[Rfam]
Overview:
The record is a 220-nucleotide RNA from Asparagus officinalis, which matches "Plant small nucleolar RNA U3" in Rfam. Small nucleolar RNAs (snoRNAs) are involved in the processing and modification of rRNA in the nucleolus. There are two main classes of snoRNAs: the box C/D class, and the box H/ACA class. U3 snoRNA is a member of the box C/D class. Indeed, the box C/D element is a subset of the six short sequence elements found in all U3 snoRNAs, namely boxes A, A', B, C, C', and D. The U3 snoRNA secondary structure is characterised by a small 5' domain (with boxes A and A'), and a larger 3' domain (with boxes B, C, C', and D), the two domains being linked by a single-stranded hinge. Boxes B and C form the B/C motif, which appears to be exclusive to U3 snoRNAs, and boxes C' and D form the C'/D motif. The latter is functionally similar to the C/D motifs found in other snoRNAs. The 5' domain and the hinge region act as a pre-rRNA-binding domain. The 3' domain has conserved protein-binding sites. Both the box B/C and box C'/D motifs are sufficient for nuclear retention of U3 snoRNA. The box C'/D motif is also necessary for nucleolar localisation, stability and hyper-methylation of U3 snoRNA. Both box B/C and C'/D motifs are involved in specific protein interactions and are necessary for the rRNA processing functions of U3 snoRNA. NCBI's taxonomy places the organism under Eukaryota, Viridiplantae, Streptophytina, Liliopsida, Asparagus. The literature on the family includes a 1997 paper in Nucleic Acids Res by Zwieb, "The uRNA database". Rfam classes the family as a C/D-box small nucleolar RNA. It scores 131 bits against the family's covariance model. Its family is annotated with nucleolus and RNA processing in the Gene Ontology.
Nucleotides: 220
Base pairs, nucleotide, nucleotide: 001038002037005033006032007031013027014026015025016024017023018022043070044069045068046067048065049064050063051062052061053060079219080218081217082216083215100207101206102205103204104203107200108199109198111196113165114164115163116162123154125152127150130147131146132145133144134143135142167193168192169191170190172188173187174186175185
Number, partner (000 for none) and nucleotide at each position: 001038a002037c003000g004000a005033u006032c007031u008000u009000a010000c011000u012000u013027g014026a015025a016024c017023a018022g019000g020000a021000u022018c023017u024016g025015u026014u027013c028000u029000a030000u031007a032006g033005g034000c035000a036000c037002g038001u039000a040000c041000a042000u043070c044069u045068g046067u047000a048065u049064c050063c051062u052061u053060g054000a055000g056000u057000c058000c059000c060053u061052a062051a063050g064049g065048a066000g067046a068045c069044a070043g071000g072000c073000c074000a075000a076000u077000u078000g079219g080218u081217u082216u083215g084000g085000u086000g087000g088000a089000u090000g091000g092000a093000c094000a095000c096000c097000g098000u099000g100207g101206c102205c103204u104203c105000u106000u107200g108199c109198c110000c111196a112000g113165a114164g115163c116162g117000u118000g119000a120000a121000u122000a123154a124000c125152g126000u127150u128000a129000g130147u131146g132145a133144u134143c135142u136000g137000a138000c139000u140000a141000g142135a143134g144133a145132u146131c147130a148000a149000c150127g151000c152125c153000a154123u155000a156000g157000a158000g159000g160000a161000u162116c163115g164114u165113u166000c167193u168192c169191g170190g171000u172188u173187u174186g175185g176000c177000c178000c179000a180000a181000a182000c183000c184000c185175c186174c187173a188172g189000c190170u191169u192168g193167a194000g195000a196111u197000u198109g199108g200107c201000u202000c203104g204103a205102g206101g207100u208000u209000g210000u211000c212000u213000g214000a215083c216082a217081g218080a219079c220000u